A member of the RNA family "Group II catalytic intron D1-D4-6" from Bradyrhizobium sp. LMTR 3, 211 nucleotides long.
For this family Rfam cites "Control of branch-site choice by a group II intron" (Chu et al., EMBO J, 2001).
Taxonomically the source falls in Bradyrhizobium (Bacteria, Pseudomonadota, Alphaproteobacteria, Hyphomicrobiales).
RNA sequence: CGACGCCCUCCCGUCAAAGGCGGAGCCCGCCAGCCGGAAGCGAGUCUUGCAUGGGCGGCGGCAACCUCGCUCGUGAAGCGUAGAUAGCGGGUACCGAAGCCCUGUGGCAAGACUCGAAAUCAUGGUCGUGCUGAAGCCUUCGCGUGUUGGGACCGGGGGCAGCAUCGCCUCGACCGUGAAUGGAUGCUCGAAGCCUAUCGCCUGACGCGCA
Numbered sequence: 001c002g003a004c005g006c007c008c009u010c011c012c013g014u015c016a017a018a019g020g021c022g023g024a025g026c027c028c029g030c031c032a033g034c035c036g037g038a039a040g041c042g043a044g045u046c047u048u049g050c051a052u053g054g055g056c057g058g059c060g061g062c063a064a065c066c067u068c069g070c071u072c073g074u075g076a077a078g079c080g081u082a083g084a085u086a087g088c089g090g091g092u093a094c095c096g097a098a099g100c101c102c103u104g105u106g107g108c109a110a111g112a113c114u115c116g117a118a119a120u121c122a123u124g125g126u127c128g129u130g131c132u133g134a135a136g137c138c139u140u141c142g143c144g145u146g147u148u149g150g151g152a153c154c155g156g157g158g159g160c161a162g163c164a165u166c167g168c169c170u171c172g173a174c175c176g177u178g179a180a181u182g183g184a185u186g187c188u189c190g191a192a193g194c195c196u197a198u199c200g201c202c203u204g205a206c207g208c209g210c211a
Base pairs, nucleotide, nucleotide: 011037012036013035015033019031020030021029022028023185026182040088041087044085045084046083047082048080049079050075051074052073053072054071055070056069057068058067060065114205115204116203130202132200133199134198136160137159138158141155142154167194168193170191171190172189173188175186